Rfam assigns this 46-nucleotide RNA to the family "COG2908 RNA". Rfam's curators put it in the seed alignment. By type it is a cis-regulatory element.

[Rfam]
RNA sequence: AGCCUCAUCAACCUUUCGGUGUAGAUGUUGUCGCAUAGCGAUGGCU
Dot-bracket structure: ((((.((....((....))......))...((((...)))).))))